[Rfam]
RNA sequence: GUCGGUUUUGAAACAGACAAGCUAUGCGAGCAGUUUUAGUAAAGCAGUUUUCAGUUUAAGCGUUAUCUCUGAUAUCUCUUCUUCCUGACUUCCUUCUUAAGUGCCUCAUAAGUCCGGCCUGUUGACAAACCCCAUGCCCACUGUGGCUCAAUAAUUUAAGAAGGAAAGACAGAUGUCUAACAAAAUGACUGGUUUAGUAAAAUGGUUCAACGCUGAAAAAGGUUUCGGCUUCAUCUCCCCAACCGACGGCAGCAAAGACGUUUUCGUACACUUCUCUGCAAUUCAGAACGGCGGCUUCAAAACGCUGGAAGAAGGUCAGAAAGUUGAAUUCUCUAUCGAAAACGGCCAGAAAGGCCCGGCAGCGGCUAACGUUAUCGCGCUGUAAGACAGAGAAUUUCUGCUGCUGACAGCAGAAAGCAUCGAUUGUGAACGGCCCCCUUGCGGGCCGUUUUCAUU
Numbered sequence: 001g002u003c004g005g006u007u008u009u010g011a012a013a014c015a016g017a018c019a020a021g022c023u024a025u026g027c028g029a030g031c032a033g034u035u036u037u038a039g040u041a042a043a044g045c046a047g048u049u050u051u052c053a054g055u056u057u058a059a060g061c062g063u064u065a066u067c068u069c070u071g072a073u074a075u076c077u078c079u080u081c082u083u084c085c086u087g088a089c090u091u092c093c094u095u096c097u098u099a100a101g102u103g104c105c106u107c108a109u110a111a112g113u114c115c116g117g118c119c120u121g122u123u124g125a126c127a128a129a130c131c132c133c134a135u136g137c138c139c140a141c142u143g144u145g146g147c148u149c150a151a152u153a154a155u156u157u158a159a160g161a162a163g164g165a166a167a168g169a170c171a172g173a174u175g176u177c178u179a180a181c182a183a184a185a186u187g188a189c190u191g192g193u194u195u196a197g198u199a200a201a202a203u204g205g206u207u208c209a210a211c212g213c214u215g216a217a218a219a220a221g222g223u224u225u226c227g228g229c230u231u232c233a234u235c236u237c238c239c240c241a242a243c244c245g246a247c248g249g250c251a252g253c254a255a256a257g258a259c260g261u262u263u264u265c266g267u268a269c270a271c272u273u274c275u276c277u278g279c280a281a282u283u284c285a286g287a288a289c290g291g292c293g294g295c296u297u298c299a300a301a302a303c304g305c306u307g308g309a310a311g312a313a314g315g316u317c318a319g320a321a322a323g324u325u326g327a328a329u330u331c332u333c334u335a336u337c338g339a340a341a342a343c344g345g346c347c348a349g350a351a352a353g354g355c356c357c358g359g360c361a362g363c364g365g366c367u368a369a370c371g372u373u374a375u376c377g378c379g380c381u382g383u384a385a386g387a388c389a390g391a392g393a394a395u396u397u398c399u400g401c402u403g404c405u406g407a408c409a410g411c412a413g414a415a416a417g418c419a420u421c422g423a424u425u426g427u428g429a430a431c432g433g434c435c436c437c438c439u440u441g442c443g444g445g446c447c448g449u450u451u452u453c454a455u456u
Stems, first nucleotide, its partner, number of pairs: 004023005030240001033237001044231001047230001049228002051222002055220002063216003067212001070209003074206001076205002081175001083173001085172003092164007102124001136147003177192003244338003248334002257265002270324004275320004279315001282309005290303001343358003359383004365376001367374001386421002426453001428451009
cspA thermoregulator: a 456-nucleotide sequence from Erwinia mallotivora.
Rfam links the family to the GO terms response to temperature stimulus and regulation of translation.
By type it is an RNA thermoregulator.
The literature on the family includes a 2010 paper in Mol Cell by Giuliodori et al., "The cspA mRNA is a thermosensor that modulates translation of the cold-shock protein CspA".
The organism belongs to Erwinia, within Bacteria.